[Rfam]
RNA sequence: UGUUAAAAGUUUCAUCCAUUUUUUUAGUUAAAAAAUAGUAACUGUAUGUUGACAUAAAGUACACAUAACGUAAUAGGUGUCACUAUUUAGCUAUUCUAUAAACCAUAUCGAUUUUUAAGGGUAAAAAUAAAUGAAAUUUUCAACA
Numbered sequence: 001u002g003u004u005a006a007a008a009g010u011u012u013c014a015u016c017c018a019u020u021u022u023u024u025u026a027g028u029u030a031a032a033a034a035a036u037a038g039u040a041a042c043u044g045u046a047u048g049u050u051g052a053c054a055u056a057a058a059g060u061a062c063a064c065a066u067a068a069c070g071u072a073a074u075a076g077g078u079g080u081c082a083c084u085a086u087u088u089a090g091c092u093a094u095u096c097u098a099u100a101a102a103c104c105a106u107a108u109c110g111a112u113u114u115u116u117a118a119g120g121g122u123a124a125a126a127a128u129a130a131a132u133g134a135a136a137u138u139u140u141c142a143a144c145a
Stems, first nucleotide, its partner, number of pairs: 002144003006140010018128006025121001028118006
Dot-bracket structure: .(((.((((((((((..((((((.(..((((((...............................................................................))))))..).))))))..)))))))))).))).
The family of this 145-nucleotide RNA from Gossypium raimondii is "MIR7502 microRNA precursor family". The family's consensus secondary structure was predicted with RNAalifold. Taxonomically the source falls in Gossypium (Eukaryota, Streptophytina, Spermatophyta, Malvales). Rfam 15.1 lists 74,505 matches to the family in 24 species.